RNA sequence: CGCUGUUACUGAGGGAGCUCAUGUUAUGGGCUGAGAGUGUGCUGUAAGCACAGACCUCCAAACCUGAUCGGGAUAAUGCCCGCGUAGGAAAGGUAGAAAGCCAAAAAU
Numbered sequence: 001c002g003c004u005g006u007u008a009c010u011g012a013g014g015g016a017g018c019u020c021a022u023g024u025u026a027u028g029g030g031c032u033g034a035g036a037g038u039g040u041g042c043u044g045u046a047a048g049c050a051c052a053g054a055c056c057u058c059c060a061a062a063c064c065u066g067a068u069c070g071g072g073a074u075a076a077u078g079c080c081c082g083c084g085u086a087g088g089a090a091a092g093g094u095a096g097a098a099a100g101c102c103a104a105a106a107a108u
Stems, first nucleotide, its partner, number of pairs: 006096005011058004017031005038052005063088004069082004
Annotation: A member of the RNA family "TPP riboswitch aptamer (THI element)" from Allolucifera butyrica, 108 nucleotides long.